A member of the RNA family "Nitrogen stress-induced RNA 1" from Mojavia pulchra, 62 nucleotides long. A search with the family's covariance model found it, with a score of 65 bits. The literature on the family includes a 2010 paper in J Mol Biol by Ionescu et al., "Heterocyst-specific transcription of NsiR1, a non-coding RNA encoded in a tandem array of direct repeats in cyanobacteria".
RNA sequence: UGGUAGAUGCACCCUGAUAACUAACUCUCCUAGUUGACUAAAACUCACUGGGAGAUUUUUUU
Numbered sequence: 001u002g003g004u005a006g007a008u009g010c011a012c013c014c015u016g017a018u019a020a021c022u023a024a025c026u027c028u029c030c031u032a033g034u035u036g037a038c039u040a041a042a043a044c045u046c047a048c049u050g051g052g053a054g055a056u057u058u059u060u061u062u
Base pairs, nucleotide, nucleotide: 002013003012004011027054028053029052030051031050032049033048034047036045
The source organism's lineage runs through Bacteria, Bacillati, Cyanobacteriota, Cyanophyceae and Mojavia pulchra.
Pairs were carried over by alignment from the consensus structure.